The family of this 84-nucleotide RNA sequence is "Small nucleolar RNA Z163/Z177 family". Pairs were carried over by alignment from the consensus structure. For this family Rfam cites "The high diversity of snoRNAs in plants: identification and comparative study of 120 snoRNA genes from Oryza sativa" (Chen et al., Nucleic Acids Res, 2003). Rfam classes the family as a C/D-box small nucleolar RNA. Rfam 15.1 lists 49 matches to the family in 12 species.
RNA sequence: UGGCCAGUGAUGAGAUGAAACGUGAGUUGUGCAGCCACUCCACUGAAACCAAAUGAAGCGCAGGGAUUAGUCCUUCUGAGGCCA
Dot-bracket structure: (((((..........................................................................)))))
Numbered sequence: 001u002g003g004c005c006a007g008u009g010a011u012g013a014g015a016u017g018a019a020a021c022g023u024g025a026g027u028u029g030u031g032c033a034g035c036c037a038c039u040c041c042a043c044u045g046a047a048a049c050c051a052a053a054u055g056a057a058g059c060g061c062a063g064g065g066a067u068u069a070g071u072c073c074u075u076c077u078g079a080g081g082c083c084a
Stems, first nucleotide, its partner, number of pairs: 001084005